[Rfam]
RNA sequence: GGGCUCGCUUUAGCCCAGCGGUUCCUUCGAGUCUGGCUUCCUAACUGCCCCGGCCGAUUGGUCCAGUGAUUCGAGACCCGCGGGCGUUCUCCAGUCCUUUU
Numbered sequence: 001g002g003g004c005u006c007g008c009u010u011u012a013g014c015c016c017a018g019c020g021g022u023u024c025c026u027u028c029g030a031g032u033c034u035g036g037c038u039u040c041c042u043a044a045c046u047g048c049c050c051c052g053g054c055c056g057a058u059u060g061g062u063c064c065a066g067u068g069a070u071u072c073g074a075g076a077c078c079c080g081c082g083g084g085c086g087u088u089c090u091c092c093a094g095u096c097c098u099u100u101u
Stems, first nucleotide, its partner, number of pairs: 002096004007091001013085004018081004026075005
A member of the RNA family "Vault RNA" from Cavia porcellus, 101 nucleotides long. It scores 67 bits against the family's covariance model. On this family, see Stadler et al., Mol Biol Evol 2009: "Evolution of Vault RNAs". The family has 73 seed sequences and 2,873 matches in Rfam 15.1. By type it is a non-coding RNA gene. About the family: This family of RNAs are found as part of the enigmatic vault ribonucleoprotein complex. Pairs were carried over by alignment from the consensus structure, which is taken from published work.